[Rfam]
RNA sequence: GAAAAGUGGAAACCAGAGACCACUAUAAAAAACGGGGCAUUACCGAAAAGCCAUAAGAGUAGGAAACUA
Numbered sequence: 001g002a003a004a005a006g007u008g009g010a011a012a013c014c015a016g017a018g019a020c021c022a023c024u025a026u027a028a029a030a031a032a033c034g035g036g037g038c039a040u041u042a043c044c045g046a047a048a049a050g051c052c053a054u055a056a057g058a059g060u061a062g063g064a065a066a067c068u069a
Base pairs, nucleotide, nucleotide: 006023007022008021009020036052037051038050043063044062
Overview
The family of this 69-nucleotide RNA from Flavobacterium sp. 123 is "DUF805 RNA". The family's consensus secondary structure is taken from published work. The family's RNA type in Rfam is cis-regulatory element. The organism belongs to Flavobacterium, within Bacteria. Rfam 15.1 lists 281 matches to the family in 219 species. Its Rfam clan is "DUF805 clan".